[Rfam]
Shown here is a 100-nucleotide RNA sequence from Desulforamulus hydrothermalis, a member of the family "Purine riboswitch aptamer". The source organism's lineage runs through Bacteria, Bacillota, Clostridia, Peptococcaceae and Desulforamulus hydrothermalis. A search with the family's covariance model found it, with a score of 78 bits.
RNA sequence: UUUAGACAAGUGAAAAAUUUCCGUAUAUGCUUGGGAAUUGGCCCAAGUGUUUCUACCGGGCAACCGUAAUUGCCUGACUACGGAGGGAAAGUGUACCUAG
Numbered sequence: 001u002u003u004a005g006a007c008a009a010g011u012g013a014a015a016a017a018u019u020u021c022c023g024u025a026u027a028u029g030c031u032u033g034g035g036a037a038u039u040g041g042c043c044c045a046a047g048u049g050u051u052u053c054u055a056c057c058g059g060g061c062a063a064c065c066g067u068a069a070u071u072g073c074c075u076g077a078c079u080a081c082g083g084a085g086g087g088a089a090a091g092u093g094u095a096c097c098u099a100g
Stems, first nucleotide, its partner, number of pairs: 018086008029048007057076007